[Rfam]
RNA sequence: ACACAGAGAGGAGGUGAUCCGAGGAGUGAUUUCCCAUCGGACGCGUGAGGUGGCUCGCCGCUGAGGCGACCAUCGGUUCUGAAGAAUCGACGGACGCGCAGCGAAUACCACCGAGCUGCCCGGACCCGCAGGCGUCGGCCUCGUCCUCCGACACGCGCAUCGCGCAGCCUGCGGGUCUGCCCAUG
Numbered sequence: 001a002c003a004c005a006g007a008g009a010g011g012a013g014g015u016g017a018u019c020c021g022a023g024g025a026g027u028g029a030u031u032u033c034c035c036a037u038c039g040g041a042c043g044c045g046u047g048a049g050g051u052g053g054c055u056c057g058c059c060g061c062u063g064a065g066g067c068g069a070c071c072a073u074c075g076g077u078u079c080u081g082a083a084g085a086a087u088c089g090a091c092g093g094a095c096g097c098g099c100a101g102c103g104a105a106u107a108c109c110a111c112c113g114a115g116c117u118g119c120c121c122g123g124a125c126c127c128g129c130a131g132g133c134g135u136c137g138g139c140c141u142c143g144u145c146c147u148c149c150g151a152c153a154c155g156c157g158c159a160u161c162g163c164g165c166a167g168c169c170u171g172c173g174g175g176u177c178u179g180c181c182c183a184u185g
Base pairs, nucleotide, nucleotide: 013058016055018053059103060102061101062100063099066097067096068095071092073090121179122178123177124176125175126174127173128172129171130170131169132168133167134152135151136150137149138148
Dot-bracket structure: ............(..(.(..................................).)..)(((((..(((..(.(................).)..))).))))).................((((((((((((((((((.........)))))..............)))))))))))))......

A member of the RNA family "Actinobacteria sRNA Ms_IGR-5" from Brachybacterium phenoliresistens, 185 nucleotides long. The base pairs follow the family's consensus structure. It scores 64 bits against the family's covariance model. Taxonomically the source falls in Brachybacterium (Bacteria, Bacillati, Actinomycetota, Actinomycetes).